[Rfam]
RNA sequence: ACUUCAAUACGGCCUAAACUUGGGAAUACUCAAGUACGGAGGAACCAAUCUUUUGGGGUUAAUCUUGCGCAAUCGCGCGGGAGGGAUGAGGAAGUCACUUCUCUGCCAUCCUACCCGUCAGCUAACUUCGUCGGCUAAAGCAGGGAAGGUCA
Numbered sequence: 001a002c003u004u005c006a007a008u009a010c011g012g013c014c015u016a017a018a019c020u021u022g023g024g025a026a027u028a029c030u031c032a033a034g035u036a037c038g039g040a041g042g043a044a045c046c047a048a049u050c051u052u053u054u055g056g057g058g059u060u061a062a063u064c065u066u067g068c069g070c071a072a073u074c075g076c077g078c079g080g081g082a083g084g085g086a087u088g089a090g091g092a093a094g095u096c097a098c099u100u101c102u103c104u105g106c107c108a109u110c111c112u113a114c115c116c117g118u119c120a121g122c123u124a125a126c127u128u129c130g131u132c133g134g135c136u137a138a139a140g141c142a143g144g145g146a147a148g149g150u151c152a
Base pairs, nucleotide, nucleotide: 011136012135013134014133018035019034020033021032022031023030024029036131037130038129039128040127041126046055047054056116057115058114064081065080066079067078084111085110086109087108
Source information
This 152-nucleotide RNA from Tumebacillus flagellatus belongs to the Rfam family "c-di-AMP riboswitch aptamer (ydaO/yuaA leader)". The source organism's lineage runs through Bacteria, Bacillati, Bacilli, Caryophanales and Tumebacillus.